[Rfam]
RNA sequence: GCUACCCUCCGCCUUCUCUUCCCGGUUCUUCCCGGAGUCGGGAAAAGCUGGGUUGAGAGGGCGAAAAAAAAAGGAU
Dot-bracket structure: .............(((((..(((((...((((((....))))))...)))))..))))).................
Record summary:
The family of this 76-nucleotide sequence from Cricetulus griseus is "mir-320 microRNA precursor family". A search with the family's covariance model found it, with a score of 94 bits. The organism belongs to Cricetulus, within Eukaryota.